[Rfam]
RNA sequence: AAGUCACGAACCGGGAGCACAGCAGGAAGUGCCGAAGCCCGGCACCGCCCCCUGGUGCUGCCCCGGCCGGUCUCCUGAACCGAGGCGCUAUG
Dot-bracket structure: ..(((.....((((.(((((((...(..((((((.....))))))...)..))).))))...)))).(((.........))).)))......
A member of the RNA family "dauA ncRNA motif" from Streptomyces cinnamoneus, 92 nucleotides long.
dauA ncRNA motif was reported as a strong cis regulatory motif candidate, with potential to be a cis regulatory riboswitch type, it have been identified in genomes of the genus Streptomyces.
Pairs were carried over by alignment from the consensus structure, which is taken from published work.
Its family is annotated with regulation of gene expression in the Gene Ontology.
Lineage of the source: Bacteria > Bacillati > Actinomycetota > Actinomycetes > Streptomyces.
It is annotated as a cis-regulatory element.